[Rfam]
RNA sequence: UACCUUGGCUGAAUUAGUGAUCGGCUAAGGUAAAUUUAAUUAACUCACUAAAUUAUUGGAGUCUAACAAUGCUAAGCAUUCAAGAAAAAGCUGACAUCGUAGCUAAAUUCGCACGUUCUGAA
Numbered sequence: 001u002a003c004c005u006u007g008g009c010u011g012a013a014u015u016a017g018u019g020a021u022c023g024g025c026u027a028a029g030g031u032a033a034a035u036u037u038a039a040u041u042a043a044c045u046c047a048c049u050a051a052a053u054u055a056u057u058g059g060a061g062u063c064u065a066a067c068a069a070u071g072c073u074a075a076g077c078a079u080u081c082a083a084g085a086a087a088a089a090g091c092u093g094a095c096a097u098c099g100u101a102g103c104u105a106a107a108u109u110c111g112c113a114c115g116u117u118c119u120g121a122a
Stems, first nucleotide, its partner, number of pairs: 007026006056075004
A member of the RNA family "Ribosomal S15 leader" from Pseudoalteromonas piratica, 122 nucleotides long. Taxonomically the source falls in Pseudoalteromonas (Bacteria, Pseudomonadati, Pseudomonadota, Alteromonadales). Rfam's curators write: The E. coli Ribosomal S15 gene 5' UTR can form two alternative structures. One that is a series of three hairpins, The other includes a pseudoknot. This structure causes translational regulation of the S15 protein. Rfam classes the family as a cis-regulatory leader. The base pairs follow the family's consensus structure, which is taken from published work. For this family Rfam cites "Pseudoknot and translational control in the expression of the S15 ribosomal protein" (Benard et al., Biochimie, 1996).